A member of the RNA family "permuted transfer-messenger RNA" from Sphingomonas alpina, 213 nucleotides long. The family's RNA type in Rfam is non-coding RNA gene. It scores 137 bits against the family's covariance model. From the family's description: Bacterial tmRNA, also known as 10Sa RNA or SsrA, is named for its dual tRNA and mRNA-like properties. Its role is to liberate the mRNA from a stalled ribosome. To accomplish this part of the tmRNA is used as a reading frame that ends in a translation stop signal. The base pairs follow the family's consensus structure, which is taken from published work.

RNA sequence: GGUGAUAAAUUGCGGCGCAUAAUAGACGCAACGGACCCGGGGGCAGUACCCGGCGGCUCCACCACAACCGGCCCUUUCAGGACCGGUCAUGACGGGGCCGAAGCAGGAUCGACGUGUGUUCAAAGGCGCUGUUUUUGCCCGGGCUGAGUAACCCGUUCAAGGCUCAAAACCACAAGUGCUAACGAUAACGAAGCACUCGCGAUUGCCGCGUAA
Numbered sequence: 001g002g003u004g005a006u007a008a009a010u011u012g013c014g015g016c017g018c019a020u021a022a023u024a025g026a027c028g029c030a031a032c033g034g035a036c037c038c039g040g041g042g043g044c045a046g047u048a049c050c051c052g053g054c055g056g057c058u059c060c061a062c063c064a065c066a067a068c069c070g071g072c073c074c075u076u077u078c079a080g081g082a083c084c085g086g087u088c089a090u091g092a093c094g095g096g097g098c099c100g101a102a103g104c105a106g107g108a109u110c111g112a113c114g115u116g117u118g119u120u121c122a123a124a125g126g127c128g129c130u131g132u133u134u135u136u137g138c139c140c141g142g143g144c145u146g147a148g149u150a151a152c153c154c155g156u157u158c159a160a161g162g163c164u165c166a167a168a169a170c171c172a173c174a175a176g177u178g179c180u181a182a183c184g185a186u187a188a189c190g191a192a193g194c195a196c197u198c199g200c201g202a203u204u205g206c207c208g209c210g211u212a213a
Stems, first nucleotide, its partner, number of pairs: 001139005015129004027118003031115003037053005054100007140155004